[Rfam]
RNA sequence: UAAUAGCUAAGAGAGCUUUCUUCAGUCCACUCAUGGGUGGUAGUAGGAUUUAAUUAGCUGCCGACUCAUUCAUCCAAAUACUGAGUUAAAGGACAAGGAGAUUACCCAGUAAAUGAGUGAAUGAUGCGGGAGACAAAUUGAAUCCUAAGCUUCCUGUACUUGGACUGAAGGGAGCUCCCUUUCCUUUUAUA
Numbered sequence: 001u002a003a004u005a006g007c008u009a010a011g012a013g014a015g016c017u018u019u020c021u022u023c024a025g026u027c028c029a030c031u032c033a034u035g036g037g038u039g040g041u042a043g044u045a046g047g048a049u050u051u052a053a054u055u056a057g058c059u060g061c062c063g064a065c066u067c068a069u070u071c072a073u074c075c076a077a078a079u080a081c082u083g084a085g086u087u088a089a090a091g092g093a094c095a096a097g098g099a100g101a102u103u104a105c106c107c108a109g110u111a112a113a114u115g116a117g118u119g120a121a122u123g124a125u126g127c128g129g130g131a132g133a134c135a136a137a138u139u140g141a142a143u144c145c146u147a148a149g150c151u152u153c154c155u156g157u158a159c160u161u162g163g164a165c166u167g168a169a170g171g172g173a174g175c176u177c178c179c180u181u182u183c184c185u186u187u188u189a190u191a
Stems, first nucleotide, its partner, number of pairs: 013177008023167007036154001058132002061129003067123004075115001

Rfam assigns this 191-nucleotide RNA sequence from Populus trichocarpa to the family "MIR159 microRNA precursor family".
The source organism's lineage runs through Eukaryota, Streptophyta, Magnoliopsida, eudicotyledons and Populus.
It is one of the family's seed sequences.
The family has 66 seed sequences and 3,649 matches in Rfam 15.1.